Source information: Rfam assigns this 52-nucleotide RNA from Lentivirus humimdef1 to the family "Trans-activation response element (TAR)". Pairs were carried over by alignment from the consensus structure, which is taken from published work.

RNA sequence: GGGUCUCUCUAGGUAGACCAGAUCUGAGCCUGGGAGCUCUCUGGCUAUCUGG
Dot-bracket structure: ........((((((((.(((((...((((......)))))))))))))))))